Overview: Shown here is a 119-nucleotide sequence from Anaerobacillus alkalidiazotrophicus, a member of the family "PyrR binding site". A search with the family's covariance model found it, with a score of 65 bits.

[Rfam]
RNA sequence: CCUCCCUUUAAAUGAGUCCUGUGAGGCUUGCAAGGGGUACUCCUCUUACUGAACUAUGCUCAAUGAUAGUUCAAAAGGAUGACCGUACCUCUUUGUGAAAUCAAAGAGGUUUUUUGUAU
Numbered sequence: 001c002c003u004c005c006c007u008u009u010a011a012a013u014g015a016g017u018c019c020u021g022u023g024a025g026g027c028u029u030g031c032a033a034g035g036g037g038u039a040c041u042c043c044u045c046u047u048a049c050u051g052a053a054c055u056a057u058g059c060u061c062a063a064u065g066a067u068a069g070u071u072c073a074a075a076a077g078g079a080u081g082a083c084c085g086u087a088c089c090u091c092u093u094u095g096u097g098a099a100a101u102c103a104a105a106g107a108g109g110u111u112u113u114u115u116g117u118a119u
Stems, first nucleotide, its partner, number of pairs: 003037006013030006044079004050073008085112001087110009